[Rfam]
Nucleotides: 155
Stems, first nucleotide, its partner, number of pairs: 002019006028069005033060006040053005083102001085100006104125004111118002129148006
Number, partner (000 for none) and nucleotide at each position: 001000c002019c003018u004017g005016u006015u007014u008000u009000g010000c011000u012000g013000c014007a015006a016005a017004c018003a019002g020000u021000u022000u023000c024000c025000c026000a027000c028069c029068c030067u031066g032065a033060c034059a035058u036057g037056c038055a039000u040053u041052u042051u043050u044049g045000g046000c047000a048000a049044c050043g051042g052041a053040a054000u055038u056037g057036u058035a059034u060033g061000a062000a063000g064000c065032u066031c067030a068029g069028g070000g071000g072000a073000c074000a075000a076000c077000g078000a079000a080000g081000c082000c083102u084000g085100c086099g087098g088097a089096g090095a091000a092000a093000u094000u095090u096089c097088u098087c099086c100085g101000g102083a103000a104125g105124a106123g107122a108000g109000a110000c111118c112117c113000g114000u115000g116000a117112g118111g119000u120000g121000a122107u123106c124105u125104c126000a127000g128000a129148u130147c131146u132145g133144g134143c135000a136000g137000c138000g139000u140000c141000a142000g143134g144133c145132c146131g147130g148129a149000u150000c151000g152000g153000g154000a155000g
Group II catalytic intron D1-D4-7: a 155-nucleotide RNA from Desulfonema ishimotonii. The family has 244 seed sequences and 1,296 matches in Rfam 15.1. From the family's description: Group II introns are found in rRNA, tRNA and mRNA of organelles in fungi, plants and protists, and also in mRNA in bacteria. On this family, see Bonen and Vogel, Trends Genet 2001: "The ins and outs of group II introns".